[Rfam]
RNA sequence: UACUGUAACUCUCUUCGAUUCCUUUUAUCUAAGAACUCUAGGUUUAUGAUUUAAGGAACGUUAGGGUAUGAUUGGAAACGAUUAUGCCUCCCAGUGUGGAAAGAAGAGAAGUGAUAGAGUAU
Numbered sequence: 001u002a003c004u005g006u007a008a009c010u011c012u013c014u015u016c017g018a019u020u021c022c023u024u025u026u027a028u029c030u031a032a033g034a035a036c037u038c039u040a041g042g043u044u045u046a047u048g049a050u051u052u053a054a055g056g057a058a059c060g061u062u063a064g065g066g067u068a069u070g071a072u073u074g075g076a077a078a079c080g081a082u083u084a085u086g087c088c089u090c091c092c093a094g095u096g097u098g099g100a101a102a103g104a105a106g107a108g109a110a111g112u113g114a115u116a117g118a119g120u121a122u
Stems, first nucleotide, its partner, number of pairs: 006113001011108006019058006027050003033045004064089011090099002
Molybdenum/Tungsten riboswitch aptamer (Moco RNA motif): a 122-nucleotide RNA sequence from Maledivibacter halophilus.